[Rfam]
Background:
Shown here is a 91-nucleotide RNA from Glycine soja, a member of the family "MIR394 microRNA precursor family". For this family Rfam cites "Computational identification of plant microRNAs and their targets, including a stress-induced miRNA" (Jones-Rhoades and Bartel, Mol Cell, 2004). The base pairs follow the family's consensus structure, which was predicted with WAR. The source organism's lineage runs through Eukaryota, Viridiplantae, Pentapetalae, Papilionoideae and Glycine subgen. Soja. The family has 19 seed sequences and 724 matches in Rfam 15.1. Its family is annotated with miRNA-mediated post-transcriptional gene silencing and RISC complex in the Gene Ontology.
RNA sequence: AUUCCAUAGCCAUUUUGGCAUUCUGUCCACCUCCACUAAUAUUAAAUGGUGACAGUUGGAGGUGGCCAGUAGGCCAAACGGGCUCUGUGAA
Numbered sequence: 001a002u003u004c005c006a007u008a009g010c011c012a013u014u015u016u017g018g019c020a021u022u023c024u025g026u027c028c029a030c031c032u033c034c035a036c037u038a039a040u041a042u043u044a045a046a047u048g049g050u051g052a053c054a055g056u057u058g059g060a061g062g063u064g065g066c067c068a069g070u071a072g073g074c075c076a077a078a079c080g081g082g083c084u085c086u087g088u089g090a091a
Stems, first nucleotide, its partner, number of pairs: 011081001015077005024068002027065008